[Rfam]
RNA sequence: GCUUAGGAGCUGGUCAAAUGGAACCAAGUCAGGGGUCUCAGAGAGGCUUGGUCCCUUUCAACCAGCUCCUGCGC
Numbered sequence: 001g002c003u004u005a006g007g008a009g010c011u012g013g014u015c016a017a018a019u020g021g022a023a024c025c026a027a028g029u030c031a032g033g034g035g036u037c038u039c040a041g042a043g044a045g046g047c048u049u050g051g052u053c054c055c056u057u058u059c060a061a062c063c064a065g066c067u068c069c070u071g072c073g074c
Stems, first nucleotide, its partner, number of pairs: 004071003008067007017058002020054003024051007

Rfam assigns this 74-nucleotide RNA from Clupea harengus to the family "mir-133 microRNA precursor family".
Rfam links the family to the GO terms RISC complex and miRNA-mediated post-transcriptional gene silencing.
Pairs were carried over by alignment from the consensus structure, which was predicted with PFOLD.
A search with the family's covariance model found it, with a score of 57 bits.
Taxonomically the source falls in Clupea (Eukaryota, Opisthokonta, Bilateria, Actinopterygii).